[Rfam]
RNA sequence: GGCCGAUAAGGGCAAACCUGAUUGAAAAACAGGGACGCAAAACUAAAGGGGCUUCUUACCAUUACGGUAAAUGCCAGCCAGUUGCCGAA
Numbered sequence: 001g002g003c004c005g006a007u008a009a010g011g012g013c014a015a016a017c018c019u020g021a022u023u024g025a026a027a028a029a030c031a032g033g034g035a036c037g038c039a040a041a042a043c044u045a046a047a048g049g050g051g052c053u054u055c056u057u058a059c060c061a062u063u064a065c066g067g068u069a070a071a072u073g074c075c076a077g078c079c080a081g082u083u084g085c086c087g088a089a
Stems, first nucleotide, its partner, number of pairs: 012038002017033004022029002041083004048079002050075003057069004